Tryptophan operon leader: a 94-nucleotide sequence from Escherichia coli. Rfam classes the family as a cis-regulatory leader. Rfam's curators write: At least 6 amino acid operons are known to be regulated by attenuation. The source organism's lineage runs through Bacteria, Pseudomonadati, Pseudomonadota, Gammaproteobacteria and Escherichia. A reference for the family is Kolter and Yanofsky (1982), "Attenuation in amino acid biosynthetic operons", Annu Rev Genet. Pairs were carried over by alignment from the consensus structure, which is taken from published work.
RNA sequence: AAAGGUUGGUGGCGCACUUCCUGAAACGGGCAGUGUAUUCACCAUGCGUAAAGCAAUCAGAGACCCAGCCCGCCUAAUGAGCGGGCUUUUUUUU
Number, nucleotide and partner (000 for none) at each position: 001a000002a000003a000004g000005g000006u000007u000008g000009g042010u041011g040012g039013c000014g036015c035016a034017c033018u032019u000020c030021c029022u028023g027024a000025a000026a000027c023028g022029g021030g020031c000032a018033g017034u016035g015036u014037a000038u000039u012040c011041a010042c009043c000044a000045u000046g000047c000048g000049u000050a000051a000052a000053g000054c000055a000056a000057u000058c000059a000060g000061a000062g000063a000064c000065c000066c000067a087068g086069c085070c084071c083072g082073c081074c079075u000076a000077a000078u000079g074080a000081g073082c072083g071084g070085g069086c068087u067088u000089u000090u000091u000092u000093u000094u000